Shown here is a 76-nucleotide RNA from Edaphobacter modestus, a member of the family "nadA riboswitch". It is annotated as a small RNA. NCBI's taxonomy places the organism under Bacteria, Terriglobia, Terriglobales, Acidobacteriaceae, Edaphobacter. On this family, see Huang et al., RNA 2020: "Structure and ligand binding of the ADP-binding domain of the NAD(+) riboswitch".

RNA sequence: GCUUUCAACAUCCCCGUCUCAGAGGCAAGGGACGGCGCCGUCCAUCGGUGCCCGACGCUUCGGUGAGACUGAAGGC
Numbered sequence: 001g002c003u004u005u006c007a008a009c010a011u012c013c014c015c016g017u018c019u020c021a022g023a024g025g026c027a028a029g030g031g032a033c034g035g036c037g038c039c040g041u042c043c044a045u046c047g048g049u050g051c052c053c054g055a056c057g058c059u060u061c062g063g064u065g066a067g068a069c070u071g072a073a074g075g076c
Stems, first nucleotide, its partner, number of pairs: 001076007013062001016069006025058002030053002